Source information: The record is a 365-nucleotide RNA sequence from Sphingomonas rubra, which matches "Bacterial RNase P class A" in Rfam. The family is grouped with related families in Rfam's "RNaseP clan". It is annotated as a ribozyme. NCBI's taxonomy places the organism under Bacteria, Pseudomonadota, Sphingomonadales, Sphingomonadaceae, Sphingomonas. It scores 278 bits against the family's covariance model. For this family Rfam cites "Ribonuclease P: unity and diversity in a tRNA processing ribozyme" (Frank and Pace, Annu Rev Biochem, 1998).
[Rfam]
RNA sequence: CCAGAGGGUCGGGCGACCGCGGGCAUCUUCGGGUGCGCGAGGAAAGUCCGGGCUCCAUGGAACGACGGUGCCGGGUAACGCCCGGCCGGGGCGACCCGAGGGAUAGUGCCACAGAGAGCAGACGGCGACCGCUUCGGCGACGCCAUGGUGAAAGGGUGCGGCAAGAGCGCACCGCGCGACCGGCAACGGGAGCGGCACGGUAAACCCCACCGGGAGCAAGAUCGAAUAGGGAUGGCACAUGAGCCUCGUUCCGGCUCGCCGUCCGGGUUGAUUGCUGGAGGCGGCGCGCGAGCGUCGUCCUAGAGGAAUGGUCGCACAGCCCCGUCAGGGGUGGACAGAACCCGGCUUACAGACCCUCUGGCGCC
Numbered sequence: 001c002c003a004g005a006g007g008g009u010c011g012g013g014c015g016a017c018c019g020c021g022g023g024c025a026u027c028u029u030c031g032g033g034u035g036c037g038c039g040a041g042g043a044a045a046g047u048c049c050g051g052g053c054u055c056c057a058u059g060g061a062a063c064g065a066c067g068g069u070g071c072c073g074g075g076u077a078a079c080g081c082c083c084g085g086c087c088g089g090g091g092c093g094a095c096c097c098g099a100g101g102g103a104u105a106g107u108g109c110c111a112c113a114g115a116g117a118g119c120a121g122a123c124g125g126c127g128a129c130c131g132c133u134u135c136g137g138c139g140a141c142g143c144c145a146u147g148g149u150g151a152a153a154g155g156g157u158g159c160g161g162c163a164a165g166a167g168c169g170c171a172c173c174g175c176g177c178g179a180c181c182g183g184c185a186a187c188g189g190g191a192g193c194g195g196c197a198c199g200g201u202a203a204a205c206c207c208c209a210c211c212g213g214g215a216g217c218a219a220g221a222u223c224g225a226a227u228a229g230g231g232a233u234g235g236c237a238c239a240u241g242a243g244c245c246u247c248g249u250u251c252c253g254g255c256u257c258g259c260c261g262u263c264c265g266g267g268u269u270g271a272u273u274g275c276u277g278g279a280g281g282c283g284g285c286g287c288g289c290g291a292g293c294g295u296c297g298u299c300c301u302a303g304a305g306g307a308a309u310g311g312u313c314g315c316a317c318a319g320c321c322c323c324g325u326c327a328g329g330g331g332u333g334g335a336c337a338g339a340a341c342c343c344g345g346c347u348u349a350c351a352g353a354c355c356c357u358c359u360g361g362c363g364c365c
Stems, first nucleotide, its partner, number of pairs: 001361010011350001013315006020039002023036005044348003048345005053216004061250004066212005071085005086100001087098004101207002106205002108201003123147002125143003130139003155173006174196001175194003180189003220273004230264006241257005280299008